Rfam assigns this 117-nucleotide sequence from Chitinimonas sp. BJB300 to the family "ALIL pseudoknot". Gene Ontology term of the family: positive regulation of translational frameshifting. For this family Rfam cites "Apical loop-internal loop RNA pseudoknots: a new type of stimulator of -1 translational frameshifting in bacteria" (Mazauric et al., J Biol Chem, 2008). The base pairs follow the family's consensus structure, which is taken from published work. Lineage of the source: Bacteria > Pseudomonadota > Betaproteobacteria > Neisseriales > Chitinimonas. The family has 26 seed sequences and 2,146 matches in Rfam 15.1.
RNA sequence: CGCGUUUUUCGCCCAGGCGGAGCUCGACCGCCAACUCAAGAAAUGAUGCUGCUGAUUGAUCAGCAGCGCGCCAACUUUGGGGUCGAGCCUAUCUGUCAGGUAUUGCAGAUGGCCCCG
Numbered sequence: 001c002g003c004g005u006u007u008u009u010c011g012c013c014c015a016g017g018c019g020g021a022g023c024u025c026g027a028c029c030g031c032c033a034a035c036u037c038a039a040g041a042a043a044u045g046a047u048g049c050u051g052c053u054g055a056u057u058g059a060u061c062a063g064c065a066g067c068g069c070g071c072c073a074a075c076u077u078u079g080g081g082g083u084c085g086a087g088c089c090u091a092u093c094u095g096u097c098a099g100g101u102a103u104u105g106c107a108g109a110u111g112g113c114c115c116c117g
Base pairs, nucleotide, nucleotide: 016032017031018030019029020028078117079116080115081114082113089112090111092109093108094107095106096105098103